[Rfam]
RNA sequence: CAUUCCUUUAAUCCAGUCCAGAGAGGCUGACAAGGCAUAGAACGCUGUUUCCCCUGCGCAAAAAGGGAGAGCAUAGCAGCUUCUUGUCUCGCCAGCCACAAAGGCUAAAGGCGAAGACAAGAAGCUUUUUUGU
Numbered sequence: 001c002a003u004u005c006c007u008u009u010a011a012u013c014c015a016g017u018c019c020a021g022a023g024a025g026g027c028u029g030a031c032a033a034g035g036c037a038u039a040g041a042a043c044g045c046u047g048u049u050u051c052c053c054c055u056g057c058g059c060a061a062a063a064a065g066g067g068a069g070a071g072c073a074u075a076g077c078a079g080c081u082u083c084u085u086g087u088c089u090c091g092c093c094a095g096c097c098a099c100a101a102a103g104g105c106u107a108a109a110g111g112c113g114a115a116g117a118c119a120a121g122a123a124g125c126u127u128u129u130u131u132g133u
Stems, first nucleotide, its partner, number of pairs: 003037001005035004014029005046073005052067004076128001078126012
RNA: PyrR binding site